Shown here is a 157-nucleotide sequence from Parashewanella curva, a member of the family "Bacterial antisense RNA HPnc0260". A search with the family's covariance model found it, with a score of 68 bits. The organism belongs to Parashewanella, within Bacteria.
RNA sequence: GGUAUGAGACCACGAAUCUGUCACCAAAUUGGCACAAGGUCAUUUUUAUACAAAAAUCAUGAUGAAAUCAUAAAGAUAAUUUAUCUGAUAAGGUAUUGAUUUUGCUAUGUAUCUAGAAUGGUACAACCGAGUGGAUUCGAACCACCGACCCCCACCA
Numbered sequence: 001g002g003u004a005u006g007a008g009a010c011c012a013c014g015a016a017u018c019u020g021u022c023a024c025c026a027a028a029u030u031g032g033c034a035c036a037a038g039g040u041c042a043u044u045u046u047u048a049u050a051c052a053a054a055a056a057u058c059a060u061g062a063u064g065a066a067a068u069c070a071u072a073a074a075g076a077u078a079a080u081u082u083a084u085c086u087g088a089u090a091a092g093g094u095a096u097u098g099a100u101u102u103u104g105c106u107a108u109g110u111a112u113c114u115a116g117a118a119u120g121g122u123a124c125a126a127c128c129g130a131g132u133g134g135a136u137u138c139g140a141a142c143c144a145c146c147g148a149c150c151c152c153c154a155c156c157a
Stems, first nucleotide, its partner, number of pairs: 026046001030042004066081003119154003128147002131145004